[Rfam]
RNA sequence: GUUGGUUAGAUGAAGGAAUUCUUCAACAUUAGAGGCCGAUGUGGAGUUAUGCUCUUGACCGGCCUCGAAUGUUAGGAGAAUGUUUUCCUCUACCUAAG
Number, nucleotide and partner (000 for none) at each position: 001g000002u097003u096004g095005g094006u000007u092008a091009g090010a089011u000012g087013a086014a085015g084016g083017a000018a081019u080020u079021c078022u077023u076024c075025a073026a072027c071028a070029u069030u068031a000032g066033a065034g064035g063036c062037c061038g060039a000040u058041g000042u000043g055044g054045a053046g052047u051048u000049a000050u000051g047052c046053u045054c044055u043056u000057g000058a040059c000060c038061g037062g036063c035064c034065u033066c032067g000068a030069a029070u028071g027072u026073u025074a000075g024076g023077a022078g021079a020080a019081u018082g000083u016084u015085u014086u013087c012088c000089u010090c009091u008092a007093c000094c005095u004096a003097a002098g000

Rfam assigns this 98-nucleotide sequence from Pinus densata to the family "MIR1314 microRNA precursor family". The source organism's lineage runs through Eukaryota, Streptophyta, Pinopsida, Pinales and Pinus subgen. Pinus. The base pairs follow the family's consensus structure, which was predicted with RNAalifold.